[Rfam]
RNA sequence: GUUUAGCUGUGUGUGGAUGGUGUUCAGCACCAGGGACAGGUGUUUUUACCUGUGUGUGGAUGGUGUUUAGCACCAGGGACAGGUGUGUUUACCU
Numbered sequence: 001g002u003u004u005a006g007c008u009g010u011g012u013g014u015g016g017a018u019g020g021u022g023u024u025c026a027g028c029a030c031c032a033g034g035g036a037c038a039g040g041u042g043u044u045u046u047u048a049c050c051u052g053u054g055u056g057u058g059g060a061u062g063g064u065g066u067u068u069a070g071c072a073c074c075a076g077g078g079a080c081a082g083g084u085g086u087g088u089u090u091a092c093c094u
Stems, first nucleotide, its partner, number of pairs: 004085002007082004018075007026067007034055001036053007
RNA: mir-2060 microRNA precursor family